[Rfam]
RNA: Manganese Mn2+ riboswitch aptamer (yybP-ykoY)
RNA sequence: UGCCCCGUCGUGGGGGAGUAGUCUGCUUCACCAGCGUGGUGAAGCGUCAUCAUCAACAUAAUUGGCGCGCCUGUGCCAUGGUGAUGACGGCCGUUUCUCGGCUUGGCGAGACCUGUGACGUUAUCCCUUCUUACCCGGGCCGGGCGAAGGCGAGACGUCAUUGGGUUCUCUUGUCCCGGCCCGU
Numbered sequence: 001u002g003c004c005c006c007g008u009c010g011u012g013g014g015g016g017a018g019u020a021g022u023c024u025g026c027u028u029c030a031c032c033a034g035c036g037u038g039g040u041g042a043a044g045c046g047u048c049a050u051c052a053u054c055a056a057c058a059u060a061a062u063u064g065g066c067g068c069g070c071c072u073g074u075g076c077c078a079u080g081g082u083g084a085u086g087a088c089g090g091c092c093g094u095u096u097c098u099c100g101g102c103u104u105g106g107c108g109a110g111a112c113c114u115g116u117g118a119c120g121u122u123a124u125c126c127c128u129u130c131u132u133a134c135c136c137g138g139g140c141c142g143g144g145c146g147a148a149g150g151c152g153a154g155a156c157g158u159c160a161u162u163g164g165g166u167u168c169u170c171u172u173g174u175c176c177c178g179g180c181c182c183g184u
Base pairs, nucleotide, nucleotide: 025045026044027043046088047087048086049085050084051083052082053081054080055079063078064077065076066075067074